Source information: The record is a 124-nucleotide RNA sequence from Menidia menidia, which matches "Small nucleolar RNA SNORA65" in Rfam. Pairs were carried over by alignment from the consensus structure, which was predicted with RNAalifold. It is annotated as an H/ACA-box small nucleolar RNA. Lineage of the source: Eukaryota > Eumetazoa > Eurypterygia > Atherinopsidae > Menidia. It scores 79 bits against the family's covariance model. U65 belongs to the H/ACA class of snoRNAs which are thought to guide the sites of modification of uridines to pseudouridines.

[Rfam]
RNA sequence: CCCGCCACUGCGCCCGCCUCGUGGCGGUUUGCGGUCCAGUGGGGGCCCAGAACAAACCCGGCUUUAGGAAACAGGGCCGUCCGACGCCCGUGGGCCGCCCUGUGCCGAAAAGCCCGGUACAGAA
Numbered sequence: 001c002c003c004g005c006c007a008c009u010g011c012g013c014c015c016g017c018c019u020c021g022u023g024g025c026g027g028u029u030u031g032c033g034g035u036c037c038a039g040u041g042g043g044g045g046c047c048c049a050g051a052a053c054a055a056a057c058c059c060g061g062c063u064u065u066a067g068g069a070a071a072c073a074g075g076g077c078c079g080u081c082c083g084a085c086g087c088c089c090g091u092g093g094g095c096c097g098c099c100c101u102g103u104g105c106c107g108a109a110a111a112g113c114c115c116g117g118u119a120c121a122g123a124a
Stems, first nucleotide, its partner, number of pairs: 005042006017024002058117004062112004067106002072102006080094003

Its Rfam clan is "SNORA65 clan".